[Rfam]
RNA sequence: UGGAAAUGAUGAAAUAGAGAUAAUUGGGUGUUAAAUGUAUGAUUCAAGAAUUUUAAUAUCUAAGUUAAGUAAUCUUAAGUUUAAUAUUUUUUAACUGUCUGAUAGUGUGUGUGUGCAUGUGCGUGUGUGUGUGUGUGCUUGUGGAGGCUAUGAAGAGGGGGCGCUGACUGGUGAUGCUGAUACUGGAGUGCAUCUGAGGCUGUUGUAGAAGCACAUGGGUUGUUGAUUACAACACUGCCGAUGAUUAUAGCCCGGGAGCAGCUCACCUAAGUAGCCUGACACCCUGAAAUCUCUGACAGGUUCAUUGAACGUGAUCCUGUGAUCUGAUCCAA
Number, nucleotide and partner (000 for none) at each position: 001u331002g330003g329004a328005a000006a000007u000008g000009a000010u000011g000012a000013a000014a000015u000016a000017g000018a000019g000020a000021u000022a000023a000024u000025u000026g000027g000028g000029u000030g000031u000032u000033a000034a000035a000036u000037g000038u000039a000040u000041g000042a000043u000044u000045c000046a000047a000048g000049a000050a000051u000052u000053u000054u000055a000056a000057u000058a000059u000060c000061u000062a000063a000064g000065u000066u000067a000068a000069g000070u000071a000072a000073u000074c000075u000076u000077a000078a000079g000080u000081u000082u000083a000084a000085u000086a000087u000088u000089u000090u000091u000092u000093a000094a000095c000096u000097g000098u000099c000100u000101g000102a000103u000104a000105g000106u000107g000108u000109g000110u000111g000112u000113g000114u000115g000116c000117a000118u000119g000120u000121g000122c000123g000124u000125g000126u000127g000128u000129g000130u000131g000132u000133g000134u000135g000136u000137g000138c000139u000140u000141g000142u000143g000144g000145a000146g000147g000148c000149u000150a000151u000152g000153a000154a000155g000156a000157g000158g000159g000160g000161g000162c000163g000164c000165u000166g000167a000168c000169u000170g000171g000172u000173g000174a000175u000176g000177c000178u000179g000180a000181u000182a000183c000184u000185g000186g000187a000188g000189u000190g000191c000192a000193u000194c000195u000196g000197a000198g000199g000200c000201u234202g233203u232204u231205g230206u229207a228208g227209a000210a224211g223212c222213a221214c219215a000216u000217g000218g000219g214220u000221u213222g212223u211224u210225g000226a000227u208228u207229a206230c205231a204232a203233c202234a201235c000236u000237g000238c000239c000240g000241a000242u000243g000244a000245u000246u000247a000248u000249a000250g000251c000252c000253c000254g000255g000256g000257a000258g000259c000260a000261g000262c000263u000264c000265a000266c000267c000268u000269a000270a000271g000272u000273a000274g000275c000276c000277u000278g000279a000280c000281a000282c000283c000284c000285u000286g000287a000288a000289a000290u000291c000292u000293c000294u000295g000296a000297c000298a000299g000300g000301u000302u000303c000304a000305u000306u000307g000308a000309a000310c000311g000312u000313g000314a000315u000316c000317c000318u000319g000320u000321g000322a000323u000324c000325u000326g000327a000328u004329c003330c002331a001332a000